[Rfam]
RNA sequence: CCUCCCACGCCUCUCGACGAAGCGCACCAUGGGAGGC
Numbered sequence: 001c002c003u004c005c006c007a008c009g010c011c012u013c014u015c016g017a018c019g020a021a022g023c024g025c026a027c028c029a030u031g032g033g034a035g036g037c
Stems, first nucleotide, its partner, number of pairs: 001036006008024003
RNA: abiF RNA